[Rfam]
RNA sequence: AUAGUCUUUAAUUCAGUCCAGAGAGGCUGGCAAGAUAACAUAAUGUCUAUGUGUAUAAUUAUUAAUACAUGUAACUUCUUGCCAGUUGGCAAGAAGUUUUUUUAA
Numbered sequence: 001a002u003a004g005u006c007u008u009u010a011a012u013u014c015a016g017u018c019c020a021g022a023g024a025g026g027c028u029g030g031c032a033a034g035a036u037a038a039c040a041u042a043a044u045g046u047c048u049a050u051g052u053g054u055a056u057a058a059u060u061a062u063u064a065a066u067a068c069a070u071g072u073a074a075c076u077u078c079u080u081g082c083c084a085g086u087u088g089g090c091a092a093g094a095a096g097u098u099u100u101u102u103u104a105a
Stems, first nucleotide, its partner, number of pairs: 004036005013030006045068002048065001051062003071100001073098011
The record is a 105-nucleotide RNA from Anaerovirgula multivorans, which matches "PyrR binding site" in Rfam.
Rfam classes the family as a cis-regulatory element.
Pairs were carried over by alignment from the consensus structure, which is taken from published work.
This family represents the PyrR binding site and terminator structure.